[Rfam]
RNA sequence: CUACAAGUUCAAGGCCAUGGCAGAAGCACUCAGAAUGAGGCCCCAUCAGAUUCCAAUGAAUCUGUGAAUCCUGCA
Numbered sequence: 001c002u003a004c005a006a007g008u009u010c011a012a013g014g015c016c017a018u019g020g021c022a023g024a025a026g027c028a029c030u031c032a033g034a035a036u037g038a039g040g041c042c043c044c045a046u047c048a049g050a051u052u053c054c055a056a057u058g059a060a061u062c063u064g065u066g067a068a069u070c071c072u073g074c075a
Stems, first nucleotide, its partner, number of pairs: 013042004020074004025069001027037002047064007

A member of the RNA family "Mammalian CPEB3 ribozyme" from Crocodylus porosus, 75 nucleotides long. Pairs were carried over by alignment from the consensus structure, which is taken from published work. Taxonomically the source falls in Crocodylus (Eukaryota, Deuterostomia, Chordata, Gnathostomata). The match comes from Rfam's covariance-model search (40 bits).